Rfam assigns this 116-nucleotide RNA sequence from Candidatus Methylobacter titanis to the family "t44 RNA". The family's RNA type in Rfam is small RNA.

Nucleotides: 116
Base pairs, nucleotide, nucleotide: 023106025104026103027102028101029100030099035097036096037095038094039093040091041090042089043088048087049086050085051084052083053082054081
Number, partner (000 for none) and nucleotide at each position: 001000g002000u003000u004000c005000a006000u007000u008000u009000u010000g011000a012000a013000c014000u015000a016000a017000u018000a019000c020000u021000c022000a023106c024000u025104c026103c027102u028101a029100u030099c031000g032000u033000c034000a035097c036096g037095u038094u039093u040091g041090g042089a043088a044000g045000g046000g047000u048087g049086c050085c051084g052083g053082c054081a055000u056000a057000a058000c059000c060000u061000g062000a063000a064000u065000u066000u067000u068000a069000a070000c071000u072000g073000a074000u075000g076000g077000u078000u079000a080000u081054u082053g083052c084051u085050g086049g087048u088043u089042u090041u091040u092000c093039a094038g095037g096036c097035g098000g099030g100029g101028u102027a103026g104025g105000u106023g107000g108000a109000g110000g111000c112000g113000u114000a115000a116000c